[Rfam]
RNA sequence: UGCGAUGAGUUGACCUCCAAUCAGGUGACUUCGGUCAUUUCGCUGCGGCGACAAGUGAUUGGAACUUUAGACAGGGCACAACCGUACUUCGGUACAACUGCAAGAUGCAGGUGUUUGGACCCCUCUGUUUUGUGGAAUUC
Numbered sequence: 001u002g003c004g005a006u007g008a009g010u011u012g013a014c015c016u017c018c019a020a021u022c023a024g025g026u027g028a029c030u031u032c033g034g035u036c037a038u039u040u041c042g043c044u045g046c047g048g049c050g051a052c053a054a055g056u057g058a059u060u061g062g063a064a065c066u067u068u069a070g071a072c073a074g075g076g077c078a079c080a081a082c083c084g085u086a087c088u089u090c091g092g093u094a095c096a097a098c099u100g101c102a103a104g105a106u107g108c109a110g111g112u113g114u115u116u117g118g119a120c121c122c123c124u125c126u127g128u129u130u131u132g133u134g135g136a137a138u139u140c
Stems, first nucleotide, its partner, number of pairs: 019060005024039006040051004075115005098110004127140001130137002
About this RNA: Enterococcus sRNA 68 (Lacto-3 RNA): a 140-nucleotide RNA from Carnobacterium sp. 17-4. Lineage of the source: Bacteria > Bacillati > Lactobacillales > Carnobacteriaceae > Carnobacterium. On this family, see Innocenti et al., RNA 2015: "Whole-genome mapping of 5' RNA ends in bacteria by tagged sequencing: a comprehensive view in Enterococcus faecalis".